[Rfam]
Shown here is an 82-nucleotide sequence from Hemibagrus wyckioides, a member of the family "mir-459 microRNA precursor family". NCBI's taxonomy places the organism under Eukaryota, Opisthokonta, Osteoglossocephalai, Siluroidei, Hemibagrus. The family has 5 seed sequences and 114 matches in Rfam 15.1. Rfam links the family to the GO terms RISC complex and miRNA-mediated post-transcriptional gene silencing.

RNA sequence: CCUACUGCUCUCAGUAACAAGGAUUCAUCCUGUUAUGUACAACAAAAUUCAACAGGAAAUCUCUGUUACUGGGGGUAAAGGA
Numbered sequence: 001c002c003u004a005c006u007g008c009u010c011u012c013a014g015u016a017a018c019a020a021g022g023a024u025u026c027a028u029c030c031u032g033u034u035a036u037g038u039a040c041a042a043c044a045a046a047a048u049u050c051a052a053c054a055g056g057a058a059a060u061c062u063c064u065g066u067u068a069c070u071g072g073g074g075g076u077a078a079a080g081g082a
Stems, first nucleotide, its partner, number of pairs: 011072009021062005029056006035049001037048002